[Rfam]
RNA sequence: CGUUGUUUGAUUGGGGGCUUACACUGAACAGCCAGAAGUCAGCAGAGGUCAUAGUACCUGACUAGCUUAAGAUGGUUAGGGAAGGAC
Numbered sequence: 001c002g003u004u005g006u007u008u009g010a011u012u013g014g015g016g017g018c019u020u021a022c023a024c025u026g027a028a029c030a031g032c033c034a035g036a037a038g039u040c041a042g043c044a045g046a047g048g049u050c051a052u053a054g055u056a057c058c059u060g061a062c063u064a065g066c067u068u069a070a071g072a073u074g075g076u077u078a079g080g081g082a083a084g085g086a087c
Stems, first nucleotide, its partner, number of pairs: 001026002004023003009018001011016001039046002048087003057080006